[Rfam]
RNA sequence: GCCCCGGAUAAUCCGGCUAGACGAAAAGCGGGGACCUUCACCCGCCAGCCGGGGCGGCCGGCCAAACG
Numbered sequence: 001g002c003c004c005c006g007g008a009u010a011a012u013c014c015g016g017c018u019a020g021a022c023g024a025a026a027a028g029c030g031g032g033g034a035c036c037u038u039c040a041c042c043c044g045c046c047a048g049c050c051g052g053g054g055c056g057g058c059c060g061g062c063c064a065a066a067c068g
Stems, first nucleotide, its partner, number of pairs: 001055007012021002028045005035068001037066002

Shown here is a 68-nucleotide RNA sequence from Rhodoferax sediminis, a member of the family "int-alpA RNA". The family's consensus secondary structure is taken from published work. Acidobacteria (1 example), Planctomycetes (1 example), Proteobacteria. It scores 38 bits against the family's covariance model. The organism belongs to Rhodoferax, within Bacteria. Rfam classes the family as a small RNA.